RNA: Whalefall-1 RNA
RNA sequence: UUAUCUCUCUUUGGAGAGAGACCGGAUUUAGCUCUGCUACAAUCCAGAGAGAGGGA
Numbered sequence: 001u002u003a004u005c006u007c008u009c010u011u012u013g014g015a016g017a018g019a020g021a022c023c024g025g026a027u028u029u030a031g032c033u034c035u036g037c038u039a040c041a042a043u044c045c046a047g048a049g050a051g052a053g054g055g056a
Stems, first nucleotide, its partner, number of pairs: 004021007024045005030038002